[Rfam]
RNA sequence: GUCUUUAUGCAGGGGCAUUACGUGUAUCAGUGAGGAUUCGUCCGAGAUCAUGUUUUUGCUGGUUGAAAACUUAACCUGACAACUUCUUGGGAUUCUAUAGCCUUGCGCUUGUGAGUUUCAAGGGAAUUUUUGGAAAACCCUUUC
Numbered sequence: 001g002u003c004u005u006u007a008u009g010c011a012g013g014g015g016c017a018u019u020a021c022g023u024g025u026a027u028c029a030g031u032g033a034g035g036a037u038u039c040g041u042c043c044g045a046g047a048u049c050a051u052g053u054u055u056u057u058g059c060u061g062g063u064u065g066a067a068a069a070c071u072u073a074a075c076c077u078g079a080c081a082a083c084u085u086c087u088u089g090g091g092a093u094u095c096u097a098u099a100g101c102c103u104u105g106c107g108c109u110u111g112u113g114a115g116u117u118u119c120a121a122g123g124g125a126a127u128u129u130u131u132g133g134a135a136a137a138c139c140c141u142u143u144c
Stems, first nucleotide, its partner, number of pairs: 020053005026048003034043003084124012